The family of this 88-nucleotide RNA sequence from Brassica rapa is "small nucleolar RNA snoR114". Pairs were carried over by alignment from the consensus structure, which was predicted with RNAalifold. The match comes from Rfam's covariance-model search (51 bits). The family's RNA type in Rfam is C/D-box small nucleolar RNA. A reference for the family is Chen and Wu (2009), "Mining small RNA sequencing data: a new approach to identify small nucleolar RNAs in Arabidopsis", Nucleic Acids Res.

RNA sequence: GAGCUGUGAAGAUUUAGGCUUCAGCGAUGGUUGGGUCCAUCGCAUUCAUCUGAUAUCUUGGAUGUGGAAUUUGCCAUACACUGAGCUC
Numbered sequence: 001g002a003g004c005u006g007u008g009a010a011g012a013u014u015u016a017g018g019c020u021u022c023a024g025c026g027a028u029g030g031u032u033g034g035g036u037c038c039a040u041c042g043c044a045u046u047c048a049u050c051u052g053a054u055a056u057c058u059u060g061g062a063u064g065u066g067g068a069a070u071u072u073g074c075c076a077u078a079c080a081c082u083g084a085g086c087u088c
Stems, first nucleotide, its partner, number of pairs: 001088004